[Rfam]
RNA sequence: CUGUGAAUAUUCUUGCUGUUCUGAUUUUGUAAUAGUCAGGACAGGUAAAACAUUUCCAACAUUAAGACUAUGCAUGUAUCCCAGACCUCGUUCUUUUCCCAGGUCUGGUUUUAUAAAUGCUGGUGAUAAAC
Numbered sequence: 001c002u003g004u005g006a007a008u009a010u011u012c013u014u015g016c017u018g019u020u021c022u023g024a025u026u027u028u029g030u031a032a033u034a035g036u037c038a039g040g041a042c043a044g045g046u047a048a049a050a051c052a053u054u055u056c057c058a059a060c061a062u063u064a065a066g067a068c069u070a071u072g073c074a075u076g077u078a079u080c081c082c083a084g085a086c087c088u089c090g091u092u093c094u095u096u097u098c099c100c101a102g103g104u105c106u107g108g109u110u111u112u113a114u115a116a117a118u119g120c121u122g123g124u125g126a127u128a129a130a131c
Stems, first nucleotide, its partner, number of pairs: 003057001005055001016044011067124004072120002081108008090099001
RNA: Small nucleolar RNA SNORA72
Organism: Aotus nancymaae